[Rfam]
RNA sequence: UUUUUUUUAUGACCGAAAAACACCAAACCUAACUAGGCGUGAUUUUCGUGAUUGUUAGAAUGA
Numbered sequence: 001u002u003u004u005u006u007u008u009a010u011g012a013c014c015g016a017a018a019a020a021c022a023c024c025a026a027a028c029c030u031a032a033c034u035a036g037g038c039g040u041g042a043u044u045u046u047c048g049u050g051a052u053u054g055u056u057a058g059a060a061u062g063a
Base pairs, nucleotide, nucleotide: 001063002062004060005059014048015047016046017045018044019043021041022040023039029036030035